[Rfam]
RNA sequence: GUCGGUCAAUUUGGCAGUUGACUGUAGCUCUGCUUCUGGAGGACAGGGUGGUGGAAUAAUCCUCAUUCAGAUUCACAAUUCUUAACGCCCCACGUUGAUAGUAGUGUCUCACUUGAACUUAGUGUGAACAUUCUGGCCUGAAUGUAAAUUCUGGGCCAGGAGGUUCUUAAAUAGCAAGGAAUUUGCCCGAGGCUGGAAACAGAGCAGGGAAAACUUGCAGCACCGAGUGGCAGUGAGGUAGCACACUUGAGUGAUUGGUUGUUAAAAUUGCUGGGUGAGCUGGUUGGACUGCCAUUCGC
Number, nucleotide and partner (000 for none) at each position: 001g044002u043003c042004g023005g022006u021007c020008a019009a018010u017011u016012u000013g000014g000015c000016a011017g010018u009019u008020g007021a006022c005023u004024g000025u000026a000027g000028c041029u040030c039031u000032g000033c000034u000035u000036c000037u000038g000039g030040a029041g028042g003043a002044c001045a000046g297047g296048g295049u294050g293051g292052u291053g290054g289055a000056a000057u286058a285059a000060u283061c282062c279063u278064c277065a276066u275067u274068c273069a272070g271071a000072u000073u000074c000075a000076c270077a269078a268079u267080u266081c000082u264083u000084a000085a262086c261087g260088c000089c000090c000091c253092a252093c251094g000095u249096u000097g000098a000099u000100a247101g246102u245103a000104g244105u243106g242107u241108c237109u236110c000111a000112c000113u233114u232115g231116a000117a228118c227119u226120u225121a000122g223123u222124g221125u220126g166127a165128a164129c163130a000131u161132u160133c159134u158135g157136g156137c155138c154139u153140g152141a150142a149143u148144g000145u000146a000147a000148a143149u142150u141151c000152u140153g139154g138155g137156c136157c135158a134159g133160g132161a131162g000163g129164u128165u127166c126167u173168u000169a000170a000171a000172u000173a167174g218175c217176a216177a215178g214179g000180a000181a000182u000183u000184u211185g000186c209187c208188c207189g000190a000191g000192g000193c202194u201195g200196g000197a000198a000199a000200c195201a194202g193203a000204g000205c000206a000207g188208g187209g186210a000211a184212a000213a000214c178215u177216u176217g175218c174219a000220g125221c124222a123223c122224c000225g120226a119227g118228u117229g000230g000231c115232a114233g113234u000235g000236a109237g108238g000239u000240a000241g107242c106243a105244c104245a102246c101247u100248u000249g095250a000251g093252u092253g091254a000255u000256u000257g000258g000259u000260u087261g086262u085263u000264a082265a000266a080267a079268u078269u077270g076271c070272u069273g068274g067275g066276u065277g064278a063279g062280c000281u000282g061283g060284u000285u058286g057287g000288a000289c054290u053291g052292c051293c050294a049295u048296u047297c046298g000299c000